[Rfam]
RNA: Bacterial RNase P class A
RNA sequence: CGAGCAGCUCGGGUAGCCGCCGCGGCCGGAAUUGCCGCGGAGGAAAGUCCGGGCUCCGCAGGGCAGGAUGCCGGGUAACGCCCGGUCGGCGCGAGCCGAAGGAAAGUGCCACAGAAAACAGACAGCCCUCUUGAAGGGGGUAAUGGUGAAAAGGCAGGGUAAGAGCCUGCCGGAUGCGGUGUAAGCCGCAUGCCUGGCAAACCCCAUCCGGAGCAAGAUCGAAUAGGGGGGGAUGAGGCGGCCCGCCGACCCCCGGGUACGAUCGCUCGAGGGGCUCCGCGAGGAGCCUCCCAGAUAAAUGGUUACCGUAUACAGAACCCGGCUUAUGAGCUGCUCGCUUU
Number, nucleotide and partner (000 for none) at each position: 001c337002g336003a335004g334005c333006a332007g331008c330009u329010c328011g327012g307013g306014u305015a304016g303017c302018c301019g000020c040021c039022g038023c037024g036025g035026c034027c000028g032029g000030a000031a000032u028033u000034g026035c025036c024037g023038c022039g021040g020041a000042g000043g000044a000045a325046a324047g323048u000049c322050c321051g320052g319053g318054c213055u212056c211057c210058g000059c000060a000061g244062g243063g242064c241065a000066g209067g208068a207069u206070g205071c085072c084073g083074g082075g081076u000077a000078a000079c000080g000081c075082c074083c073084g072085g071086u100087c098088g097089g096090c095091g000092c000093g000094a000095g090096c089097c088098g087099a000100a086101g204102g203103a000104a000105a000106g202107u201108g198109c197110c196111a000112c000113a000114g000115a000116a000117a000118a000119c000120a000121g000122a000123c145124a144125g141126c140127c139128c138129u137130c136131u135132u000133g000134a000135a131136g130137g129138g128139g127140g126141u125142a000143a000144u124145g123146g000147u000148g000149a000150a000151a000152a000153g171154g170155c169156a168157g167158g166159g000160u000161a000162a000163g000164a000165g000166c158167c157168u156169g155170c154171c153172g000173g193174a191175u190176g189177c188178g187179g186180u185181g000182u000183a000184a000185g180186c179187c178188g177189c176190a175191u174192g000193c173194c000195u000196g110197g109198c108199a000200a000201a107202c106203c102204c101205c070206a069207u068208c067209c066210g057211g056212a055213g054214c000215a000216a000217g264218a263219u262220c261221g000222a000223a000224u000225a000226g000227g254228g253229g252230g251231g250232g000233a000234u000235g000236a000237g247238g246239c245240g000241g064242c063243c062244c061245g239246c238247c237248g000249a000250c231251c230252c229253c228254c227255g000256g000257g000258u000259a000260c000261g220262a219263u218264c217265g000266c000267u000268c000269g000270a000271g290272g289273g288274g287275c286276u285277c284278c283279g000280c000281g000282a000283g278284g277285a276286g275287c274288c273289u272290c271291c000292c000293a000294g000295a000296u000297a000298a000299a000300u000301g018302g017303u016304u015305a014306c013307c012308g000309u000310a000311u000312a000313c000314a000315g000316a000317a000318c053319c052320c051321g050322g049323c047324u046325u045326a000327u011328g010329a009330g008331c007332u006333g005334c004335u003336c002337g001338c000339u000340u000341u000